RNA sequence: UAAUAAGGGCGCACGGUGGAUGCCUUGGCAUUAAGAGCCGAAGAAGGACGUGACUAACGACGAUAUUCUAGGGGGAGCAGUAAGUACGCAUUGAUCCCUAGGUCUCCGAAUGGGGAAACCCACUAUGUUAUGCAUAGUAUCCGUAAGUGAAUACAUAGCUUACGCGAAGGUAACGCAGAGAACUGAAACAUCUAAGUACCUGCAGGAAGAGAAAGUAAAAACGAUUUCCUAAGUAGCGGCGAGCGAACGGGAAACAGGCCAAACCAAGAAGCUUGCUUCUUGGGGUUGUAGGACUGCAACGUGGACUUAAAGUCUAUAGAAGAAUUACCUGGGAAGGUAAGCCAAAGAGAGUAAUAGCCUCGUAUUUGAAAUAGACUUUAUACCUAGCAGUAUCCUGAGUAGGGCUGGACACGCGAAAUCCAGUUUGAAUCCGGGAGGACCAUCUCCCAAGCCUAAAUACUCCUUAAUGACCGAUAGUGAACCAGUACCGUGAGGGAAAGGUGAAAAGAACCCCGGGAGGGGAGUGAAAUAGCACCUGAAACCGUGUGCCUACAAG
Numbered sequence: 001u002a003a004u005a006a007g008g009g010c011g012c013a014c015g016g017u018g019g020a021u022g023c024c025u026u027g028g029c030a031u032u033a034a035g036a037g038c039c040g041a042a043g044a045a046g047g048a049c050g051u052g053a054c055u056a057a058c059g060a061c062g063a064u065a066u067u068c069u070a071g072g073g074g075g076a077g078c079a080g081u082a083a084g085u086a087c088g089c090a091u092u093g094a095u096c097c098c099u100a101g102g103u104c105u106c107c108g109a110a111u112g113g114g115g116a117a118a119c120c121c122a123c124u125a126u127g128u129u130a131u132g133c134a135u136a137g138u139a140u141c142c143g144u145a146a147g148u149g150a151a152u153a154c155a156u157a158g159c160u161u162a163c164g165c166g167a168a169g170g171u172a173a174c175g176c177a178g179a180g181a182a183c184u185g186a187a188a189c190a191u192c193u194a195a196g197u198a199c200c201u202g203c204a205g206g207a208a209g210a211g212a213a214a215g216u217a218a219a220a221a222c223g224a225u226u227u228c229c230u231a232a233g234u235a236g237c238g239g240c241g242a243g244c245g246a247a248c249g250g251g252a253a254a255c256a257g258g259c260c261a262a263a264c265c266a267a268g269a270a271g272c273u274u275g276c277u278u279c280u281u282g283g284g285g286u287u288g289u290a291g292g293a294c295u296g297c298a299a300c301g302u303g304g305a306c307u308u309a310a311a312g313u314c315u316a317u318a319g320a321a322g323a324a325u326u327a328c329c330u331g332g333g334a335a336g337g338u339a340a341g342c343c344a345a346a347g348a349g350a351g352u353a354a355u356a357g358c359c360u361c362g363u364a365u366u367u368g369a370a371a372u373a374g375a376c377u378u379u380a381u382a383c384c385u386a387g388c389a390g391u392a393u394c395c396u397g398a399g400u401a402g403g404g405c406u407g408g409a410c411a412c413g414c415g416a417a418a419u420c421c422a423g424u425u426u427g428a429a430u431c432c433g434g435g436a437g438g439a440c441c442a443u444c445u446c447c448c449a450a451g452c453c454u455a456a457a458u459a460c461u462c463c464u465u466a467a468u469g470a471c472c473g474a475u476a477g478u479g480a481a482c483c484a485g486u487a488c489c490g491u492g493a494g495g496g497a498a499a500g501g502u503g504a505a506a507a508g509a510a511c512c513c514c515g516g517g518a519g520g521g522g523a524g525u526g527a528a529a530u531a532g533c534a535c536c537u538g539a540a541a542c543c544g545u546g547u548g549c550c551u552a553c554a555a556g
Stems, first nucleotide, its partner, number of pairs: 007551010022536001023501002027472002029469007036461002038170002046107003049062003068101007077089002112121003122138007140167002142164007174205001175203004185192002215222002225457001226253005236244002256454004264283007290396003294390004308380010319367003325340005343347001349361003402426008433448005488495002511522004
Dot-bracket structure: ......((((((((((.....(((..(((((((((((((......((((((........))).....(((((((..((.........)).....)))))))...)))....(((....)))(((((((...))))))).(((((((((.........))))))).)).))...(((((......((....)).......)))).).........((....))..((((((.....((.....))....)))))..((((....(((((((......)))))))......(((.((((..........((((((((((.(((...(((((......)))))..(...).(((.......)))...)))...))))))))))......))))...))).....((((((((.........))))))))......(((((......)))))..))))..)..)).))))))).))...............((....))....)).........((((....)))).............).....)))))))))).....